[Rfam]
RNA: Small nucleolar RNA SNORA44
Organism: Myotis davidii
RNA sequence: CAAUAUCUUUAGUCAUUAAAACCAUGAUAUAUCUCCAAAUGCAUGCAAGAGCAACCUGGGGAGACUUUGACAGUUCAGGUCAGCAUAAUACCUGCAGCUGCCACUCGCCUUUCCUAUAUCU
Numbered sequence: 001c002a003a004u005a006u007c008u009u010u011a012g013u014c015a016u017u018a019a020a021a022c023c024a025u026g027a028u029a030u031a032u033c034u035c036c037a038a039a040u041g042c043a044u045g046c047a048a049g050a051g052c053a054a055c056c057u058g059g060g061g062a063g064a065c066u067u068u069g070a071c072a073g074u075u076c077a078g079g080u081c082a083g084c085a086u087a088a089u090a091c092c093u094g095c096a097g098c099u100g101c102c103a104c105u106c107g108c109c110u111u112u113c114c115u116a117u118a119u120c121u
Stems, first nucleotide, its partner, number of pairs: 001026001008020004058114006073101002076094004